[Rfam]
The record is a 91-nucleotide RNA from Nyctereutes procyonoides, which matches "mir-8799 microRNA precursor family" in Rfam. Taxonomically the source falls in Nyctereutes (Eukaryota, Eumetazoa, Craniata, Caniformia).

RNA sequence: CGGGGGAGGUCGGAUCCUGGGCUGUGUCCCCGGCGCCCUGUGCUCCCGGGCUUGUGCUGUUGGCAAUGCGCUCCCAGCCGCGCAGCCCCCU
Numbered sequence: 001c002g003g004g005g006g007a008g009g010u011c012g013g014a015u016c017c018u019g020g021g022c023u024g025u026g027u028c029c030c031c032g033g034c035g036c037c038c039u040g041u042g043c044u045c046c047c048g049g050g051c052u053u054g055u056g057c058u059g060u061u062g063g064c065a066a067u068g069c070g071c072u073c074c075c076a077g078c079c080g081c082g083c084a085g086c087c088c089c090c091u
Stems, first nucleotide, its partner, number of pairs: 002090005009083002011080003016077001019074003023070004028063001030062001031059006040052001042051003
Dot-bracket structure: .(((((..(((((..(..(((.((((.(.(((((((...(.(((....)))).))))))..))...)))).)))..)))).))..))))).